The family of this 106-nucleotide RNA sequence from Rhizomicrobium palustre is "SAM-I/IV (S-adenosyl methionine) riboswitch aptamer".
[Rfam]
RNA sequence: GCCCAGCAUGACGAGUUGGGCGCUGCCCAACGCCAACCUGCUCCCGAGCAAGGUGGCGCUCUCGCUUAGAGAGAAUGCGGCCGAUCCGGCAACAAACGGGGACGCG
Numbered sequence: 001g002c003c004c005a006g007c008a009u010g011a012c013g014a015g016u017u018g019g020g021c022g023c024u025g026c027c028c029a030a031c032g033c034c035a036a037c038c039u040g041c042u043c044c045c046g047a048g049c050a051a052g053g054u055g056g057c058g059c060u061c062u063c064g065c066u067u068a069g070a071g072a073g074a075a076u077g078c079g080g081c082c083g084a085u086c087c088g089g090c091a092a093c094a095a096a097c098g099g100g101g102a103c104g105c106g
Base pairs, nucleotide, nucleotide: 006078007077008076009075015031017030018028019027020026021025032057033056034055037053038052039051040049041048042047045101080090081089082088083087
Dot-bracket structure: .....((((.....(.(((((...)))).))(((..((((((..[.))).))).))).................)))).((((...))))..........].....
For this family Rfam cites "The aptamer core of SAM-IV riboswitches mimics the ligand-binding site of SAM-I riboswitches" (Weinberg et al., RNA, 2008). A search with the family's covariance model found it, with a score of 48 bits. The family has 417 seed sequences and 567 matches in Rfam 15.1.